[Rfam]
RNA sequence: GGCCUCGUGGCGCAACUGAAUAGCGCAUCAGAUUUCGGCUCUGAGGGUUGGGGGUUUGAAUCCCUUCGAGGUCA
Numbered sequence: 001g002g003c004c005u006c007g008u009g010g011c012g013c014a015a016c017u018g019a020a021u022a023g024c025g026c027a028u029c030a031g032a033u034u035u036c037g038g039c040u041c042u043g044a045g046g047g048u049u050g051g052g053g054g055u056u057u058g059a060a061u062c063c064c065u066u067c068g069a070g071g072u073c074a
Base pairs, nucleotide, nucleotide: 001073002072003071004070005069006068007067010026011025012024013023028044029043030042031041032040050066051065052064053063054062